[Rfam]
RNA: U12 minor spliceosomal RNA
Organism: Octodon degus
RNA sequence: AUGCCUUAAACAUAUGAGCAAGGAAAAUAAUCAUUCAGGGUGAUGCCUGCAUCUUCACUGCUAAUGUGAAGUGAAUUUUUGAGCAGUUAACAUUGCCCCAAAGUGACCAGUCUUUGUAGGAUGCCUGGGAGUGAUACCUA
Numbered sequence: 001a002u003g004c005c006u007u008a009a010a011c012a013u014a015u016g017a018g019c020a021a022g023g024a025a026a027a028u029a030a031u032c033a034u035u036c037a038g039g040g041u042g043a044u045g046c047c048u049g050c051a052u053c054u055u056c057a058c059u060g061c062u063a064a065u066g067u068g069a070a071g072u073g074a075a076u077u078u079u080u081g082a083g084c085a086g087u088u089a090a091c092a093u094u095g096c097c098c099c100a101a102a103g104u105g106a107c108c109a110g111u112c113u114u115u116g117u118a119g120g121a122u123g124c125c126u127g128g129g130a131g132u133g134a135u136a137c138c139u140a
Base pairs, nucleotide, nucleotide: 004023005022006021007020033052034051036049037048038047039046054070055069056068057067058066085139086138088136092135093134094133095132096131098129099128101126103124104123105122107120108119110117111116